Annotation
ZMP/ZTP riboswitch aptamer (pfl RNA motif): an 81-nucleotide RNA sequence from Clostridium sp. D5. The base pairs follow the family's consensus structure, which is taken from published work. Rfam links the family to the GO terms one-carbon metabolic process and regulation of purine nucleotide biosynthetic process.
RNA sequence: AAUGUUCUAUGUGACUGACGGAAAAGUGGAGUAUACCACAUGGGAGCAUAGAAUAGAACGCCGACCGUCUGGGCAGCUCAA
Numbered sequence: 001a002a003u004g005u006u007c008u009a010u011g012u013g014a015c016u017g018a019c020g021g022a023a024a025a026g027u028g029g030a031g032u033a034u035a036c037c038a039c040a041u042g043g044g045a046g047c048a049u050a051g052a053a054u055a056g057a058a059c060g061c062c063g064a065c066c067g068u069c070u071g072g073g074c075a076g077c078u079c080a081a
Stems, first nucleotide, its partner, number of pairs: 003055010015043002017069005026039004060074003